[Rfam]
RNA sequence: UUAGCCCUAGGUAACACCCCUGAGCGGGGGCGGAUGAGCCUGGCGGGUUACCCCGGCCAAA
Numbered sequence: 001u002u003a004g005c006c007c008u009a010g011g012u013a014a015c016a017c018c019c020c021u022g023a024g025c026g027g028g029g030g031c032g033g034a035u036g037a038g039c040c041u042g043g044c045g046g047g048u049u050a051c052c053c054c055g056g057c058c059a060a061a
Base pairs, nucleotide, nucleotide: 004044005043006042009041010040011039012038017030018029019028020027021026